Rfam assigns this 216-nucleotide RNA from Merluccius polli to the family "Small nucleolar RNA U3". It scores 162 bits against the family's covariance model. It is annotated as a C/D-box small nucleolar RNA. Clan: U3 clan. Taxonomically the source falls in Merluccius (Eukaryota, Opisthokonta, Vertebrata, Actinopterygii). From the family's description: Small nucleolar RNAs (snoRNAs) are involved in the processing and modification of rRNA in the nucleolus.
RNA sequence: AAGAUCAUACUUUCAGGGAUCAUUUCUAUAGUUUUUGACUUGAGAAAUAUCGUACAAAAGUGAUCGGUUACUCCAACCACGAUGAAGAGUACUGAUGUUCCCUUCUGAGCGCGAAGCGGGCAGCGAGUCAUGAUUCAGUUCAUCCGCUCGUUGUCAUUGAUGACCGUUCCUCGCUCCCUAGUGGAGCCUGGAGGUAGGGAACAUGUUCAGAGUGGU
Numbered sequence: 001a002a003g004a005u006c007a008u009a010c011u012u013u014c015a016g017g018g019a020u021c022a023u024u025u026c027u028a029u030a031g032u033u034u035u036u037g038a039c040u041u042g043a044g045a046a047a048u049a050u051c052g053u054a055c056a057a058a059a060g061u062g063a064u065c066g067g068u069u070a071c072u073c074c075a076a077c078c079a080c081g082a083u084g085a086a087g088a089g090u091a092c093u094g095a096u097g098u099u100c101c102c103u104u105c106u107g108a109g110c111g112c113g114a115a116g117c118g119g120g121c122a123g124c125g126a127g128u129c130a131u132g133a134u135u136c137a138g139u140u141c142a143u144c145c146g147c148u149c150g151u152u153g154u155c156a157u158u159g160a161u162g163a164c165c166g167u168u169c170c171u172c173g174c175u176c177c178c179u180a181g182u183g184g185a186g187c188c189u190g191g192a193g194g195u196a197g198g199g200a201a202c203a204u205g206u207u208c209a210g211a212g213u214g215g216u
Stems, first nucleotide, its partner, number of pairs: 001041003005037001007034001009032003015027004049064005076216005095204009105194002109167003119155004125149004130143004170190001173187005